[Rfam]
RNA: Potassium channel RNA editing signal
RNA sequence: GUCGGUUAUGGUGACAUGACACCAAUCGGUGUUUGGGGGAAAAUUGUUGGCUCACUAUGUGCAAUUGCUGGCGUAUUAACAAUUUCUCUUCCCGUGCCUGUCAUUGUUAGUAAU
Numbered sequence: 001g002u003c004g005g006u007u008a009u010g011g012u013g014a015c016a017u018g019a020c021a022c023c024a025a026u027c028g029g030u031g032u033u034u035g036g037g038g039g040a041a042a043a044u045u046g047u048u049g050g051c052u053c054a055c056u057a058u059g060u061g062c063a064a065u066u067g068c069u070g071g072c073g074u075a076u077u078a079a080c081a082a083u084u085u086c087u088c089u090u091c092c093c094g095u096g097c098c099u100g101u102c103a104u105u106g107u108u109a110g111u112a113a114u
Base pairs, nucleotide, nucleotide: 001114002113004111008107009106010105011104013102014101015100016099018097021095022094037077038076040074050062051061